[Rfam]
Nucleotides: 084
Stems, first nucleotide, its partner, number of pairs: 001084005007078008016069003020065016038049002
Number, partner (000 for none) and nucleotide at each position: 001084u002083c003082u004081c005080a006000u007078g008077u009076a010075u011074c012073c013072u014071c015000c016069c017068u018067g019000u020065a021064a022063a023062g024061g025060u026059a027058c028057a029056a030055u031054a032053u033052u034051u035050g036000u037000u038049u039048u040000g041000u042000u043000u044000g045000a046000a047000a048039a049038a050035c051034a052033a053032a054031u055030a056029u057028u058027g059026u060025a061024c062023c063022u064021u065020u066000a067018c068017a069016g070000g071014g072013a073012g074011g075010a076009u077008a078007c079000a080005u081004g082003a083002g084001a

This 84-nucleotide sequence from Pantherophis guttatus belongs to the Rfam family "mir-515 microRNA precursor family". A search with the family's covariance model found it, with a score of 70 bits. Lineage of the source: Eukaryota > Eumetazoa > Deuterostomia > Dipnotetrapodomorpha > Pantherophis. The base pairs follow the family's consensus structure, which was predicted with RNAalifold. A reference for the family is Bentwich et al. (2005), "Identification of hundreds of conserved and nonconserved human microRNAs", Nat Genet.